About this RNA:
Small nucleolar RNA Z40: a 72-nucleotide RNA sequence from Labrus bergylta. The base pairs follow the family's consensus structure, which was predicted with PFOLD. For this family Rfam cites "The high diversity of snoRNAs in plants: identification and comparative study of 120 snoRNA genes from Oryza sativa" (Chen et al., Nucleic Acids Res, 2003). It is annotated as a C/D-box small nucleolar RNA.
[Rfam]
RNA sequence: UGUUGUUAUGAUGAUUGGCUUUAUGUUCAACUGCUCUGAUGUGUGAUUGAUAGAUGCCUCUCUGAACCAUCC
Number, nucleotide and partner (000 for none) at each position: 001u000002g071003u000004u069005g067006u066007u000008a000009u000010g000011a000012u000013g000014a000015u000016u000017g000018g000019c000020u000021u000022u000023a000024u000025g000026u000027u000028c000029a000030a000031c000032u000033g000034c000035u000036c000037u000038g000039a000040u000041g000042u000043g000044u000045g000046a000047u000048u000049g000050a000051u000052a000053g000054a000055u000056g000057c000058c000059u000060c000061u000062c000063u000064g000065a000066a006067c005068c000069a004070u000071c002072c000